[Rfam]
RNA sequence: AAUAAAUAACCACAAUAUCGUCGUAUAAUCUUGGGGAUAUGGCCCAUAAGUUUCUACCGAGCUACCGUAAAGAGCUUGACUACGCAGAUUGUGAGUGGGGAC
Dot-bracket structure: .................((..((((...(..((((.......))))..)........((((((.........))))))..))))..))..............
This 102-nucleotide sequence from Mesobacillus persicus belongs to the Rfam family "Purine riboswitch aptamer". Riboswitches are metabolite binding domains within certain messenger RNAs that serve as precision sensors for their corresponding targets. The base pairs follow the family's consensus structure, which is taken from published work.